[Rfam]
RNA sequence: CUUAGAAAUAUAAUUGAGUGCAGCGUUGAUGAAAAAUGUCAAAAUUGUACCAAGUUAUUAAUGGUGCUAGCUGCAUCAUUCUUCCAUUUCAUAGAGCAUUUUCAUCUACACUGCACUCAAUCAUGUUUUUA
Numbered sequence: 001c002u003u004a005g006a007a008a009u010a011u012a013a014u015u016g017a018g019u020g021c022a023g024c025g026u027u028g029a030u031g032a033a034a035a036a037u038g039u040c041a042a043a044a045u046u047g048u049a050c051c052a053a054g055u056u057a058u059u060a061a062u063g064g065u066g067c068u069a070g071c072u073g074c075a076u077c078a079u080u081c082u083u084c085c086a087u088u089u090c091a092u093a094g095a096g097c098a099u100u101u102u103c104a105u106c107u108a109c110a111c112u113g114c115a116c117u118c119a120a121u122c123a124u125g126u127u128u129u130u131a
Stems, first nucleotide, its partner, number of pairs: 006128006013121011025109002028106001030104006
This 131-nucleotide RNA from Anisodus acutangulus belongs to the Rfam family "MIR397 microRNA precursor family". The source organism's lineage runs through Eukaryota, Euphyllophyta, Pentapetalae, lamiids and Anisodus.